[Rfam]
RNA sequence: UGCGCGCGGCCGCCGAGUCCGCGUUCCGCGGAACCGGGGACCCACUUCUCGGGGUGAAUCGGCGCGCAGACCCCCAGAUGCGCCCGUAGGGCACUUCCUGCCCGAACCCGUCAGCUAACCCGGUAGGCGGCAUGGAAGCAAGGA
Numbered sequence: 001u002g003c004g005c006g007c008g009g010c011c012g013c014c015g016a017g018u019c020c021g022c023g024u025u026c027c028g029c030g031g032a033a034c035c036g037g038g039g040a041c042c043c044a045c046u047u048c049u050c051g052g053g054g055u056g057a058a059u060c061g062g063c064g065c066g067c068a069g070a071c072c073c074c075c076a077g078a079u080g081c082g083c084c085c086g087u088a089g090g091g092c093a094c095u096u097c098c099u100g101c102c103c104g105a106a107c108c109c110g111u112c113a114g115c116u117a118a119c120c121c122g123g124u125a126g127g128c129g130g131c132a133u134g135g136a137a138g139c140a141a142g143g144a
Base pairs, nucleotide, nucleotide: 011129012128013127014126018032019031020030033124034123035122036121037120038119043051052109053108054107060086061085062084089103090102091101092100

Notes:
c-di-AMP riboswitch aptamer (ydaO/yuaA leader): a 144-nucleotide RNA from Microbispora triticiradicis. NCBI's taxonomy places the organism under Bacteria, Bacillati, Actinomycetota, Streptosporangiaceae, Microbispora.